A member of the RNA family "UnaL2 LINE 3' element" from Conger conger, 54 nucleotides long. NCBI's taxonomy places the organism under Eukaryota, Chordata, Congridae, Congrinae, Conger. A search with the family's covariance model found it, with a score of 59 bits. Pairs were carried over by alignment from the consensus structure, which is taken from published work. Rfam describes the family as follows. The eel long interspersed element (LINE) UnaL2 and its partner short interspersed element (SINE) share a conserved 3' tail containing a stem-loop that is critical for their retrotransposition. Presumably, the first step of retrotransposition is the recognition of their 3' tails by UnaL2-encoded reverse transcriptase. The solution structure of a 17-nucleotide RNA derived from the 3' tail of UnaL2 was determined by NMR. By type it is a cis-regulatory element.

RNA sequence: CGUACAAUUCGUUGUACGUCGCUCUGGAUAAGAGUGUCUGCUAAAUGCCUGUAA
Numbered sequence: 001c002g003u004a005c006a007a008u009u010c011g012u013u014g015u016a017c018g019u020c021g022c023u024c025u026g027g028a029u030a031a032g033a034g035u036g037u038c039u040g041c042u043a044a045a046u047g048c049c050u051g052u053a054a
Stems, first nucleotide, its partner, number of pairs: 013043001014041003020036006